[Rfam]
U4atac minor spliceosomal RNA: a 126-nucleotide sequence from Myotis lucifugus.

RNA sequence: ACCAUUCUUUCCCUGGGGUUGCACUACUAUCCAAUGAAUGUCUAGUGAAGGCAGUACUGCUAACACCUAAACAACACAUUCGCAUCAGGUGGGGCUCUGCUUUACCUUGGUGCAAUUUUUGGAAAA
Numbered sequence: 001a002c003c004a005u006u007c008u009u010u011c012c013c014u015g016g017g018g019u020u021g022c023a024c025u026a027c028u029a030u031c032c033a034a035u036g037a038a039u040g041u042c043u044a045g046u047g048a049a050g051g052c053a054g055u056a057c058u059g060c061u062a063a064c065a066c067c068u069a070a071a072c073a074a075c076a077c078a079u080u081c082g083c084a085u086c087a088g089g090u091g092g093g094g095c096u097c098u099g100c101u102u103u104a105c106c107u108u109g110g111u112g113c114a115a116u117u118u119u120u121g122g123a124a125a126a
Base pairs, nucleotide, nucleotide: 006018007017008016009015021060022059023058026055027054028053030051031050038046039045082113083112084111085110086109087108090104091103092102093101094100095099

Clan: U4 clan. The family has 61 seed sequences and 1,648 matches in Rfam 15.1. Rfam classes the family as a spliceosomal small nuclear RNA. Rfam describes the family as follows. U4atac is an essential component of the minor U12-type spliceosome complex which is required for removal of the rarer class of eukaryotic introns (AT-AC, U12-type).